[Rfam]
RNA sequence: AAAGUCCUGGUCGGGUAAGGGUUAGCCACCCACCCGUAUCGAGUGUUGGUCCUGCUGCGGAGUGGCGCAAGCCGCGAACAAGAGGCAGGGCAAGCGUACACAGAGAAUCCUGUAGGCCGUAGGGGUGGUCGCGCACCCUGAAGUGCUGGUACAGCUUCGAGAUAGCAACCCGCGGAUGGCGACAGUGUUAACGUCCUGGAAGCCAACAUGAAGCACGCGCUACGUGGCAAGUGUGUGGAUGUCCGCCGGAGUCCUCAGGCC
Numbered sequence: 001a002a003a004g005u006c007c008u009g010g011u012c013g014g015g016u017a018a019g020g021g022u023u024a025g026c027c028a029c030c031c032a033c034c035c036g037u038a039u040c041g042a043g044u045g046u047u048g049g050u051c052c053u054g055c056u057g058c059g060g061a062g063u064g065g066c067g068c069a070a071g072c073c074g075c076g077a078a079c080a081a082g083a084g085g086c087a088g089g090g091c092a093a094g095c096g097u098a099c100a101c102a103g104a105g106a107a108u109c110c111u112g113u114a115g116g117c118c119g120u121a122g123g124g125g126u127g128g129u130c131g132c133g134c135a136c137c138c139u140g141a142a143g144u145g146c147u148g149g150u151a152c153a154g155c156u157u158c159g160a161g162a163u164a165g166c167a168a169c170c171c172g173c174g175g176a177u178g179g180c181g182a183c184a185g186u187g188u189u190a191a192c193g194u195c196c197u198g199g200a201a202g203c204c205a206a207c208a209u210g211a212a213g214c215a216c217g218c219g220c221u222a223c224g225u226g227g228c229a230a231g232u233g234u235g236u237g238g239a240u241g242u243c244c245g246c247c248g249g250a251g252u253c254c255u256c257a258g259g260c261c
Base pairs, nucleotide, nucleotide: 012036013035014034015033019031020030021029022028023230025228026227039104040103043101044100045099046098047096048095049091050090051089052088053087054086055085056084058082154252155251156250157249158248159247172246173245174244175243176242177241178204179203180202183198184197185196213236214235215234216233217232218231
RNA: Group II catalytic intron D1-D4-6